RNA sequence: UAUUGAAAAAAGCCGAAUCUCCAGUAGGAGUACGGGGGACUAAACUUUUGGGGUGAAUCUCAUUAUGAGUAGGGUACCUCUACCCGAACCCGUCAACUAACCUCGGAGGCGAUGGAGGUGUUUAA
Numbered sequence: 001u002a003u004u005g006a007a008a009a010a011a012g013c014c015g016a017a018u019c020u021c022c023a024g025u026a027g028g029a030g031u032a033c034g035g036g037g038g039a040c041u042a043a044a045c046u047u048u049u050g051g052g053g054u055g056a057a058u059c060u061c062a063u064u065a066u067g068a069g070u071a072g073g074g075u076a077c078c079u080c081u082a083c084c085c086g087a088a089c090c091c092g093u094c095a096a097c098u099a100a101c102c103u104c105g106g107a108g109g110c111g112a113u114g115g116a117g118g119u120g121u122u123u124a125a
Stems, first nucleotide, its partner, number of pairs: 012110003019030004033105005041050002051091003059069004072085004
RNA: c-di-AMP riboswitch aptamer (ydaO/yuaA leader)
Organism: Fonticella tunisiensis